RNA sequence: CAACGGCACACCACCACAACGGAUCGUCCGGCACGUACCUGCCGGUGGAGGGAUGUACCA
Numbered sequence: 001c002a003a004c005g006g007c008a009c010a011c012c013a014c015c016a017c018a019a020c021g022g023a024u025c026g027u028c029c030g031g032c033a034c035g036u037a038c039c040u041g042c043c044g045g046u047g048g049a050g051g052g053a054u055g056u057a058c059c060a
Stems, first nucleotide, its partner, number of pairs: 011051002014048003028045006

Overview: The family of this 60-nucleotide sequence from Paraoerskovia marina is "msiK RNA". A search with the family's covariance model found it, with a score of 57 bits.